[Rfam]
RNA sequence: UCACGAGAUAGAGGUGCGCUUUUAAUUAUUAAACAGCAUGAGGUAGUGCCUGCCGAUGAGUACUGUUGAAAGGUAAAAGCGCCGAAGGGAGAAAAAUAGCACUGUUUUUCUCGCCUGGUUCAUGUAUGAAUAAUACCUGGACUGUCAUCUUUCGAGAUGGAGAGCUAUCCAUGAA
Numbered sequence: 001u002c003a004c005g006a007g008a009u010a011g012a013g014g015u016g017c018g019c020u021u022u023u024a025a026u027u028a029u030u031a032a033a034c035a036g037c038a039u040g041a042g043g044u045a046g047u048g049c050c051u052g053c054c055g056a057u058g059a060g061u062a063c064u065g066u067u068g069a070a071a072g073g074u075a076a077a078a079g080c081g082c083c084g085a086a087g088g089g090a091g092a093a094a095a096a097u098a099g100c101a102c103u104g105u106u107u108u109u110c111u112c113g114c115c116u117g118g119u120u121c122a123u124g125u126a127u128g129a130a131u132a133a134u135a136c137c138u139g140g141a142c143u144g145u146c147a148u149c150u151u152u153c154g155a156g157a158u159g160g161a162g163a164g165c166u167a168u169c170c171a172u173g174a175a
Stems, first nucleotide, its partner, number of pairs: 007169005016082009032067005038061002086116003089112008117143006124136004145160006